Rfam assigns this 142-nucleotide RNA sequence from Actinidia chinensis to the family "Small nucleolar RNA snoR136".
Gene Ontology terms of the family: nucleolus and RNA processing.
The family has 8 seed sequences and 452 matches in Rfam 15.1.
Rfam classes the family as an H/ACA-box small nucleolar RNA.
Pairs were carried over by alignment from the consensus structure, which was predicted with mfold.
The organism belongs to Actinidia chinensis, within Eukaryota.
[Rfam]
RNA sequence: AUGGCUUCCUUUGUUUUUUGAAAUGGUUCCUUUGAAAACAUGUGUUGGAUGGAAUUGUAUGUAAGUGAAGCUAGAACAAUGUUCCUCCCACUAUCCAGGGCUACCCUUUGUAGUGCAUUUUGAACGUUGAGGAAAUACAUUU
Numbered sequence: 001a002u003g004g005c006u007u008c009c010u011u012u013g014u015u016u017u018u019u020g021a022a023a024u025g026g027u028u029c030c031u032u033u034g035a036a037a038a039c040a041u042g043u044g045u046u047g048g049a050u051g052g053a054a055u056u057g058u059a060u061g062u063a064a065g066u067g068a069a070g071c072u073a074g075a076a077c078a079a080u081g082u083u084c085c086u087c088c089c090a091c092u093a094u095c096c097a098g099g100g101c102u103a104c105c106c107u108u109u110g111u112a113g114u115g116c117a118u119u120u121u122g123a124a125c126g127u128u129g130a131g132g133a134a135a136u137a138c139a140u141u142u
Stems, first nucleotide, its partner, number of pairs: 002074001003072003008067001010065004017059001019057002026055005032049002036046002082134006089126001094124001096122003105113001